Annotation
This 162-nucleotide RNA sequence from Phoenix dactylifera belongs to the Rfam family "Small nucleolar RNA snoR145". The family has 19 seed sequences and 286 matches in Rfam 15.1. The family's RNA type in Rfam is H/ACA-box small nucleolar RNA. A search with the family's covariance model found it, with a score of 62 bits. Its family is annotated with RNA processing and nucleolus in the Gene Ontology. On this family, see Chen and Wu, Nucleic Acids Res 2009: "Mining small RNA sequencing data: a new approach to identify small nucleolar RNAs in Arabidopsis". Pairs were carried over by alignment from the consensus structure, which was predicted with mfold.
RNA sequence: AAGCGAAGGCCCCAGCAGAGGGGGUAAAUCUCCAUAGUUGAGAUCUCUCUAACGAUCUCUAACGAUCAUAUCAUUCCCUUCGCAGAGGAAACUUGGCCGUUUCGUAGGCGCAUGAACGAUUUUUAGGUUUUUCAUGGCGUCUGAACCCACGGCUACAUUGCA
Numbered sequence: 001a002a003g004c005g006a007a008g009g010c011c012c013c014a015g016c017a018g019a020g021g022g023g024g025u026a027a028a029u030c031u032c033c034a035u036a037g038u039u040g041a042g043a044u045c046u047c048u049c050u051a052a053c054g055a056u057c058u059c060u061a062a063c064g065a066u067c068a069u070a071u072c073a074u075u076c077c078c079u080u081c082g083c084a085g086a087g088g089a090a091a092c093u094u095g096g097c098c099g100u101u102u103c104g105u106a107g108g109c110g111c112a113u114g115a116a117c118g119a120u121u122u123u124u125a126g127g128u129u130u131u132u133c134a135u136g137g138c139g140u141c142u143g144a145a146c147c148c149a150c151g152g153c154u155a156c157a158u159u160g161c162a
Base pairs, nucleotide, nucleotide: 003083004082005081006080007079008078009077011020013018022049023048024047030042031041032040034038096153097152098151099150100149108140109139111137112135113134114133115132116131118129
Dot-bracket structure: ..(((((((.(.(....).).(((.....(((.(...).)))....)))...........................)))))))............(((((.......((.((((((.(..........).))))).).))........))))).........